About this RNA:
This 104-nucleotide sequence belongs to the Rfam family "EGFOA RNA". Pairs were carried over by alignment from the consensus structure, which is taken from published work. By type it is a small RNA.
RNA sequence: UAUACCCUAGAUGAUCCGUCCUAGUUACGAAAGUAAAGGAAGAUAUAAUGAGUUACUUAAAAGUAUACGUGAUAAUGCUAGACCUAGGCACGUUAAAAUUAUAU
Number, nucleotide and partner (000 for none) at each position: 001u000002a000003u000004a000005c000006c088007c087008u086009a085010g084011a000012u000013g000014a000015u000016c000017c000018g083019u082020c000021c081022u080023a079024g078025u036026u035027a034028c033029g000030a000031a000032a000033g028034u027035a026036a025037a000038g000039g000040a000041a000042g000043a104044u103045a102046u101047a100048a099049u098050g000051a000052g000053u000054u065055a064056c063057u000058u000059a000060a000061a000062a000063g056064u055065a054066u000067a093068c092069g091070u090071g089072a000073u000074a000075a000076u000077g000078c024079u023080a022081g021082a019083c018084c010085u009086a008087g007088g006089c071090a070091c069092g068093u067094u000095a000096a000097a000098a049099u048100u047101a046102u045103a044104u043